c-di-GMP-I riboswitch aptamer: a 76-nucleotide RNA sequence from Acholeplasma laidlawii. Rfam's curators write: GEMM was predicted in a large-scale screen for bacterial structured RNA regulatory elements. NCBI's taxonomy places the organism under Bacteria, Bacillati, Acholeplasmataceae, Acholeplasma, Acholeplasma laidlawii. A search with the family's covariance model found it, with a score of 62 bits. The base pairs follow the family's consensus structure, which is taken from published work.
RNA sequence: UCAUAAAAAAGGCAAAAUUAGGGUAACUUAAUGACGCAAAACUACAGGGUCCAAAUUAGGAUAGCCAGUUGCUAUA
Numbered sequence: 001u002c003a004u005a006a007a008a009a010a011g012g013c014a015a016a017a018u019u020a021g022g023g024u025a026a027c028u029u030a031a032u033g034a035c036g037c038a039a040a041a042c043u044a045c046a047g048g049g050u051c052c053a054a055a056u057u058a059g060g061a062u063a064g065c066c067a068g069u070u071g072c073u074a075u076a
Stems, first nucleotide, its partner, number of pairs: 012037002017032006040070004047066002049062003